Description:
A member of the RNA family "RAGATH-18 RNA", 82 nucleotides long.

RNA sequence: CUUGUGGACUGUUUUAUAUCAAACGAGAGUAGACUUUGUAUUUUAAAGUGUGAAGACCAAAUCAGACAGGUUGAAGCAAGAA
Numbered sequence: 001c002u003u004g005u006g007g008a009c010u011g012u013u014u015u016a017u018a019u020c021a022a023a024c025g026a027g028a029g030u031a032g033a034c035u036u037u038g039u040a041u042u043u044u045a046a047a048g049u050g051u052g053a054a055g056a057c058c059a060a061a062u063c064a065g066a067c068a069g070g071u072u073g074a075a076g077c078a079a080g081a082a
Base pairs, nucleotide, nucleotide: 001080002079003078004077005076009069010068011067012066013065025063026062032057034055037050038049